RNA sequence: CUGGUGCGGACGCUGAACCCUGCCGCCGCUCCGGGUCCGUACAACUUCGCCGGCAGGGGCGGGGGAACCAAGACGUGGGCACCGGAACACGGUGUCCUUGGGGUGAAGCCGAACGGAUGGUCAGUCCAUCUGAACGGCCGGGUGCUUCUCCAACCCGAACCCGACAGCUCACCUCGUAGGCGCAAGGAGAGGCACC
Numbered sequence: 001c002u003g004g005u006g007c008g009g010a011c012g013c014u015g016a017a018c019c020c021u022g023c024c025g026c027c028g029c030u031c032c033g034g035g036u037c038c039g040u041a042c043a044a045c046u047u048c049g050c051c052g053g054c055a056g057g058g059g060c061g062g063g064g065g066a067a068c069c070a071a072g073a074c075g076u077g078g079g080c081a082c083c084g085g086a087a088c089a090c091g092g093u094g095u096c097c098u099u100g101g102g103g104u105g106a107a108g109c110c111g112a113a114c115g116g117a118u119g120g121u122c123a124g125u126c127c128a129u130c131u132g133a134a135c136g137g138c139c140g141g142g143u144g145c146u147u148c149u150c151c152a153a154c155c156c157g158a159a160c161c162c163g164a165c166a167g168c169u170c171a172c173c174u175c176g177u178a179g180g181c182g183c184a185a186g187g188a189g190a191g192g193c194a195c196c
Stems, first nucleotide, its partner, number of pairs: 011182004018058008059177006069100004101162003109137003140156004
Shown here is a 196-nucleotide sequence from Cellulomonas sp. WB94, a member of the family "c-di-AMP riboswitch aptamer (ydaO/yuaA leader)".